[Rfam]
Lysine riboswitch aptamer: a 174-nucleotide RNA sequence from Alteribacillus persepolensis. Taxonomically the source falls in Alteribacillus (Bacteria, Bacillota, Bacilli, Caryophanales).

RNA sequence: AGAUGAGGUAGAGGCGCAAAUGUCAAGAGUAUGUUUUCGGAGUUGACAACGAAGAUGAAAACAAAAAGGGGUAUUUGCCGAAGCUCGUGGGAAUGUCACUUCUCAUGAGCUGGGACUGCAUUGAAUAAAUGCAGGACUGUCACGAUGGAUUCGUCGUGGAGGGCUACUUUGUAU
Number, nucleotide and partner (000 for none) at each position: 001a000002g000003a000004u000005g000006a169007g168008g167009u166010a165011g164012a000013g000014g000015c000016g078017c077018a076019a075020a074021u073022g072023u071024c070025a000026a000027g000028a000029g000030u000031a000032u063033g062034u061035u060036u059037u058038c057039g056040g000041a000042g000043u000044u000045g000046a000047c000048a000049a000050c000051g000052a000053a000054g000055a000056u039057g038058a037059a036060a035061a034062c033063a032064a000065a000066a000067a000068g000069g000070g024071g023072u022073a021074u020075u019076u018077g017078c016079c000080g000081a000082a111083g110084c109085u108086c107087g106088u105089g104090g103091g102092a101093a100094u000095g000096u000097c000098a000099c000100u093101u092102c091103u090104c089105a088106u087107g086108a085109g084110c083111u082112g138113g137114g000115a000116c134117u133118g132119c131120a130121u129122u128123g000124a000125a000126u000127a000128a122129a121130u120131g119132c118133a117134g116135g000136a000137c113138u112139g000140u159141c158142a157143c156144g155145a154146u153147g000148g000149a000150u000151u000152c000153g146154u145155c144156g143157u142158g141159g140160a000161g000162g000163g000164c011165u010166a009167c008168u007169u006170u000171g000172u000173a000174u000
Riboswitches are metabolite binding domains within certain messenger RNAs that serve as precision sensors for their corresponding targets. Allosteric rearrangement of mRNA structure is mediated by ligand binding, and this results in modulation of gene expression.